About this RNA: Shown here is a 66-nucleotide RNA, a member of the family "Pistol ribozyme". Gene Ontology term of the family: catalytic activity. The literature on the family includes a 2020 paper in Angew Chem Int Ed Engl by Teplova et al., "Crucial Roles of Two Hydrated Mg(2+) Ions in Reaction Catalysis of the Pistol Ribozyme". The sequence is in the family's curated seed alignment.

RNA sequence: ACAGGUUUGCGCCUGUAUAAAUAGACAUUAAGCGCAAAGCGUCCCGCAAUUGUUGCGGGGGUUGUA
Numbered sequence: 001a002c003a004g005g006u007u008u009g010c011g012c013c014u015g016u017a018u019a020a021a022u023a024g025a026c027a028u029u030a031a032g033c034g035c036a037a038a039g040c041g042u043c044c045c046g047c048a049a050u051u052g053u054u055g056c057g058g059g060g061g062u063u064g065u066a
Stems, first nucleotide, its partner, number of pairs: 001016004006038006025065003032040001042060007